Shown here is a 128-nucleotide RNA sequence, a member of the family "Plastid-psbA-1 3UTR RNA". Rfam's curators put it in the seed alignment.
[Rfam]
RNA sequence: UCGAAGCUCCAACAAAUGGCUAAGACUUGUUUUUAGUGUGUAGGAGUUUUUGAAAAUAGAAUAGAUAAAUAUAAGGAGCAAUAAACCCUUUCUUGUUCUAUCAAAAGAGGGUUUAUUGCUCCUUUAUU
Number, nucleotide and partner (000 for none) at each position: 001u000002c000003g000004a000005a000006g000007c000008u000009c019010c018011a000012a000013c000014a000015a000016a000017u000018g010019g009020c000021u000022a000023a000024g000025a000026c000027u000028u000029g000030u000031u000032u000033u000034u000035a000036g000037u000038g000039u000040g000041u000042a000043g000044g000045a000046g000047u000048u000049u000050u000051u000052g000053a000054a000055a000056a000057u000058a000059g000060a000061a000062u000063a000064g000065a000066u000067a000068a000069a000070u000071a000072u000073a124074a123075g122076g121077a120078g119079c118080a117081a116082u115083a114084a113085a000086c111087c110088c109089u000090u107091u106092c000093u104094u103095g000096u000097u000098c000099u000100a000101u000102c000103a094104a093105a000106a091107g090108a000109g088110g087111g086112u000113u084114u083115a082116u081117u080118g079119c078120u077121c076122c075123u074124u073125u000126a000127u000128u000